[Rfam]
RNA sequence: GCGGGAGGCCGCUACUGGCGCGGGUGGGUCACCACCGGGGAACGGCCGCGUGACCGUCGACGCCGACCGCCUGGGCCCGCGAC
Numbered sequence: 001g002c003g004g005g006a007g008g009c010c011g012c013u014a015c016u017g018g019c020g021c022g023g024g025u026g027g028g029u030c031a032c033c034a035c036c037g038g039g040g041a042a043c044g045g046c047c048g049c050g051u052g053a054c055c056g057u058c059g060a061c062g063c064c065g066a067c068c069g070c071c072u073g074g075g076c077c078c079g080c081g082a083c
Stems, first nucleotide, its partner, number of pairs: 003051001005049001007047005015039002017071004024035004062076003

The record is an 83-nucleotide RNA from Pseudofrankia inefficax, which matches "ZMP/ZTP riboswitch aptamer (pfl RNA motif)" in Rfam. NCBI's taxonomy places the organism under Bacteria, Bacillati, Frankiales, Frankiaceae, Pseudofrankia. Gene Ontology terms of the family: one-carbon metabolic process and regulation of purine nucleotide biosynthetic process.